[Rfam]
RNA sequence: ACGUUAGUACCGGGGAGCCUGUGGAAACGGGCUGAGAGCUGGCUGGAACCCGCCGGGACCCGUAUACCUGAUUUGGAUCAUGCCAACGUAGGAAGUGCUGUGACUGGAUAG
Number, nucleotide and partner (000 for none) at each position: 001a000002c000003g000004u000005u000006a099007g098008u097009a096010c095011c062012g061013g060014g059015g000016a000017g032018c031019c030020u029021g028022u000023g000024g000025a000026a000027a000028c021029g020030g019031g018032c017033u000034g000035a000036g000037a000038g000039c056040u055041g054042g053043c052044u000045g000046g000047a000048a000049c000050c000051c000052g043053c042054c041055g040056g039057g000058a000059c014060c013061c012062g011063u000064a000065u000066a000067c092068c091069u090070g089071a000072u000073u086074u085075g084076g083077a000078u000079c000080a000081u000082g000083c076084c075085a074086a073087c000088g000089u070090a069091g068092g067093a000094a000095g010096u009097g008098c007099u006100g000101u000102g000103a000104c000105u000106g000107g000108a000109u000110a000111g000

The family of this 111-nucleotide RNA sequence from Clostridium sp. AM33-3 is "TPP riboswitch aptamer (THI element)". The family's consensus secondary structure is taken from published work. The source organism's lineage runs through Bacteria, Bacillati, Bacillota, Clostridia and Clostridium. A search with the family's covariance model found it, with a score of 67 bits.